This 114-nucleotide RNA sequence from Polypterus senegalus belongs to the Rfam family "Potassium channel RNA editing signal". The family has 85 seed sequences and 14,095 matches in Rfam 15.1. Taxonomically the source falls in Polypterus (Eukaryota, Opisthokonta, Bilateria, Chordata). The family's RNA type in Rfam is cis-regulatory element. Rfam describes the family as follows. This family represents a group of sequences related to the human potassium channel Kv1.1 hairpin element which directs the efficient modification of an adenosine to inosine by an adenosine deaminase acting on RNA (ADAR). A reference for the family is Bhalla et al. (2004), "Control of human potassium channel inactivation by editing of a small mRNA hairpin", Nat Struct Mol Biol. The match comes from Rfam's covariance-model search (91 bits). Pairs were carried over by alignment from the consensus structure, which is taken from published work.
RNA sequence: UUAGGAUAUGGUGAUAUGUACCCUAAGACCUGGUCAGGAAUGGUAGUAGGGGCGCUCUGUGCAUUGGCUGGAGUGCUCACAAUAGCCAUGCCCGUUCCUGUCAUCGUGAAUAAC
Numbered sequence: 001u002u003a004g005g006a007u008a009u010g011g012u013g014a015u016a017u018g019u020a021c022c023c024u025a026a027g028a029c030c031u032g033g034u035c036a037g038g039a040a041u042g043g044u045a046g047u048a049g050g051g052g053c054g055c056u057c058u059g060u061g062c063a064u065u066g067g068c069u070g071g072a073g074u075g076c077u078c079a080c081a082a083u084a085g086c087c088a089u090g091c092c093c094g095u096u097c098c099u100g101u102c103a104u105c106g107u108g109a110a111u112a113a114c
Stems, first nucleotide, its partner, number of pairs: 002113001004111001007108005013102004018097001020095002037077002040074001050062001